[Rfam]
RNA sequence: UACUGAUAACCAGCACGGGCGUCGAGGAAACUCUACGCCCGUGCACGCAUGUUGAGGGUAGGUUAAAGCAU
Numbered sequence: 001u002a003c004u005g006a007u008a009a010c011c012a013g014c015a016c017g018g019g020c021g022u023c024g025a026g027g028a029a030a031c032u033c034u035a036c037g038c039c040c041g042u043g044c045a046c047g048c049a050u051g052u053u054g055a056g057g058g059u060a061g062g063u064u065a066a067a068g069c070a071u
Stems, first nucleotide, its partner, number of pairs: 013044009024033003

This 71-nucleotide sequence from Rahnella aquatilis belongs to the Rfam family "tpke11". The literature on the family includes a 2001 paper in Curr Biol by Rivas et al., "Computational identification of noncoding RNAs in E. coli by comparative genomics". Rfam links the family to the GO term response to temperature stimulus. The organism belongs to Rahnella aquatilis, within Bacteria. In Yersinia located in ICR upstream dnaJ (chaperone)gene. Has temperature responsive RNA structure.